The family of this 168-nucleotide sequence from Anaeromyces robustus is "U12 minor spliceosomal RNA". It is annotated as a spliceosomal small nuclear RNA. The source organism's lineage runs through Eukaryota, chytridiomyceta, Neocallimastigomycetes, Neocallimastigaceae and Anaeromyces. On this family, see Tarn and Steitz, Trends Biochem Sci 1997: "Pre-mRNA splicing: the discovery of a new spliceosome doubles the challenge".
RNA sequence: UUGCCUCAAAUUAAUGAGUAAGGAUAAUAACUUCAUUGGGUGAUACCAAUGACAAAAAAAAAAGUUUAAAAAACUUUUUUUUUUAAAAAUAUUUAAAAUUUUUGAAGGGUUCAUAGGCUGACCUAGUUGAGCGGGAUGCUUUAUUCUCUUCAUAAGGCGACCUGCUCU
Numbered sequence: 001u002u003g004c005c006u007c008a009a010a011u012u013a014a015u016g017a018g019u020a021a022g023g024a025u026a027a028u029a030a031c032u033u034c035a036u037u038g039g040g041u042g043a044u045a046c047c048a049a050u051g052a053c054a055a056a057a058a059a060a061a062a063a064g065u066u067u068a069a070a071a072a073a074c075u076u077u078u079u080u081u082u083u084u085a086a087a088a089a090u091a092u093u094u095a096a097a098a099u100u101u102u103u104g105a106a107g108g109g110u111u112c113a114u115a116g117g118c119u120g121a122c123c124u125a126g127u128u129g130a131g132c133g134g135g136a137u138g139c140u141u142u143a144u145u146c147u148c149u150u151c152a153u154a155a156g157g158c159g160a161c162c163u164g165c166u167c168u
Stems, first nucleotide, its partner, number of pairs: 004023003008019001033052007054084011108168002112164001115163003119159002123156002128152004133147005